The family of this 493-nucleotide part of an RNA from Fusarium longipes is "Eukaryotic large subunit ribosomal RNA".
NCBI's taxonomy places the organism under Eukaryota, Fungi, saccharomyceta, Hypocreales, Fusarium sambucinum species complex.
A reference for the family is Yusupov et al. (2001), "Crystal structure of the ribosome at 5.5 A resolution", Science.
A search with the family's covariance model found it, with a score of 3382 bits.
Gene Ontology terms of the family: ribosome and structural constituent of ribosome.

RNA sequence: UCCGCCGAAGUUUCCCUCAGGAUAGCAGUGUUGAACUCAGUUUUAUGAGGUAAAGCGAAUGAUUAGGGACUCGGGGGCGCUAUUUAGCCUUCAUCCAUUCUCAAACUUUAAAUAUGUAAGAAGCUCUUGUUGCUUAAUUGAACGUGAGCAUUCGAAUGUAUCAACACUAGUGGGCCAUUUUUGGUAAGCAGAACUGGCGAUGCGGGAUGAACCGAACGCGAGGUUAAGGUGCCAGAGUAGACGCUCAUCAGACACCACAAAAGGUGUUAGUACAUCUUGACAGCAGGACGGUGGCCAUGGAAGUCGGAAUCCGCUAAGGACUGUGUAACAACUCACCUGCCGAAUGUACUAGCCCUGAAAAUGGAUGGCGCUCAAGCGUCUCACCCAUACCUCGCCCUCAGGGUAGAAACGAUGCCCUGAGGAGUAGGCGGACGUGGAGGUCAGUGACGAAGCCUAGGGCGUGAGCCCGGGUUGAACGGCCUCUAGUGCAGAU
Dot-bracket structure: ((((((....(.(((....))).)..(((((((.......(((((((.....(((....(((..(.(((...(((((.(.....)..))))).))).)..)))..)).).....))))))).((((.((((.........)))).))))............))))))).....((((.(((((.....))))).))))....(((......)))...(((((.(...(((......(.(..(((.................(((.((((((((((.......(((((.(((...((.........))...)))(...)(...((......)).).)))))...)))))))))))))...................)))..)))))...).)))))(((((((((.........)))))))))....))))))(.((((((((.((......((....(((....)))...))...))))))))))..).....
Numbered sequence: 001u002c003c004g005c006c007g008a009a010g011u012u013u014c015c016c017u018c019a020g021g022a023u024a025g026c027a028g029u030g031u032u033g034a035a036c037u038c039a040g041u042u043u044u045a046u047g048a049g050g051u052a053a054a055g056c057g058a059a060u061g062a063u064u065a066g067g068g069a070c071u072c073g074g075g076g077g078c079g080c081u082a083u084u085u086a087g088c089c090u091u092c093a094u095c096c097a098u099u100c101u102c103a104a105a106c107u108u109u110a111a112a113u114a115u116g117u118a119a120g121a122a123g124c125u126c127u128u129g130u131u132g133c134u135u136a137a138u139u140g141a142a143c144g145u146g147a148g149c150a151u152u153c154g155a156a157u158g159u160a161u162c163a164a165c166a167c168u169a170g171u172g173g174g175c176c177a178u179u180u181u182u183g184g185u186a187a188g189c190a191g192a193a194c195u196g197g198c199g200a201u202g203c204g205g206g207a208u209g210a211a212c213c214g215a216a217c218g219c220g221a222g223g224u225u226a227a228g229g230u231g232c233c234a235g236a237g238u239a240g241a242c243g244c245u246c247a248u249c250a251g252a253c254a255c256c257a258c259a260a261a262a263g264g265u266g267u268u269a270g271u272a273c274a275u276c277u278u279g280a281c282a283g284c285a286g287g288a289c290g291g292u293g294g295c296c297a298u299g300g301a302a303g304u305c306g307g308a309a310u311c312c313g314c315u316a317a318g319g320a321c322u323g324u325g326u327a328a329c330a331a332c333u334c335a336c337c338u339g340c341c342g343a344a345u346g347u348a349c350u351a352g353c354c355c356u357g358a359a360a361a362u363g364g365a366u367g368g369c370g371c372u373c374a375a376g377c378g379u380c381u382c383a384c385c386c387a388u389a390c391c392u393c394g395c396c397c398u399c400a401g402g403g404u405a406g407a408a409a410c411g412a413u414g415c416c417c418u419g420a421g422g423a424g425u426a427g428g429c430g431g432a433c434g435u436g437g438a439g440g441u442c443a444g445u446g447a448c449g450a451a452g453c454c455u456a457g458g459g460c461g462u463g464a465g466c467c468c469g470g471g472u473u474g475a476a477c478g479g480c481c482u483c484u485a486g487u488g489c490a491g492a493u
Stems, first nucleotide, its partner, number of pairs: 001432006011024001013022003027168007041121007053109001054107002060103003065098001067096003073092005079085001123149004128144004174198004179193005203214003218395005224389001228385003237382001239381001242378003262356003266353010283340005289313003295307002314318001319334001323332002396422009433488001435485008444477002452472002458467003